Rfam assigns this 102-nucleotide sequence from Saimiri boliviensis to the family "Vault RNA". It scores 76 bits against the family's covariance model. By type it is a non-coding RNA gene. Pairs were carried over by alignment from the consensus structure, which is taken from published work.

RNA sequence: GGGCCGGCUUUAGCUCAGCGGUUACUUUGACAAUGCUCUCCUUGCUGGAAAAUGAAACCACUCUGUGUGGUUCGAGACCCGCGGGCGCUCUCCGGUCCUUUA
Numbered sequence: 001g002g003g004c005c006g007g008c009u010u011u012a013g014c015u016c017a018g019c020g021g022u023u024a025c026u027u028u029g030a031c032a033a034u035g036c037u038c039u040c041c042u043u044g045c046u047g048g049a050a051a052a053u054g055a056a057a058c059c060a061c062u063c064u065g066u067g068u069g070g071u072u073c074g075a076g077a078c079c080c081g082c083g084g085g086c087g088c089u090c091u092c093c094g095g096u097c098c099u100u101u102a
Stems, first nucleotide, its partner, number of pairs: 002097006013086004018082004026076005